Shown here is a 108-nucleotide RNA sequence from Populus deltoides, a member of the family "MIR480 microRNA precursor family".
On this family, see Lu et al., Plant Cell 2005: "Novel and mechanical stress-responsive MicroRNAs in Populus trichocarpa that are absent from Arabidopsis".
The source organism's lineage runs through Eukaryota, Magnoliopsida, Gunneridae, rosids and Populus.
The family's consensus secondary structure was predicted with WAR.
It scores 59 bits against the family's covariance model.
[Rfam]
RNA sequence: UAAUUUAUUUGAGGUAGAUUCUCUUUUAAUUAUAGUAGACUCACACUUAACUGAUUAAAAUCAUUCACUAUUGUGUGAACAAUAAUCAUUUGAGAUUUUAAUUAAAUU
Numbered sequence: 001u002a003a004u005u006u007a008u009u010u011g012a013g014g015u016a017g018a019u020u021c022u023c024u025u026u027u028a029a030u031u032a033u034a035g036u037a038g039a040c041u042c043a044c045a046c047u048u049a050a051c052u053g054a055u056u057a058a059a060a061u062c063a064u065u066c067a068c069u070a071u072u073g074u075g076u077g078a079a080c081a082a083u084a085a086u087c088a089u090u091u092g093a094g095a096u097u098u099u100a101a102u103u104a105a106a107u108u
Base pairs, nucleotide, nucleotide: 004106005105006104007103008101009100012097015094018091025088027085029083030082031081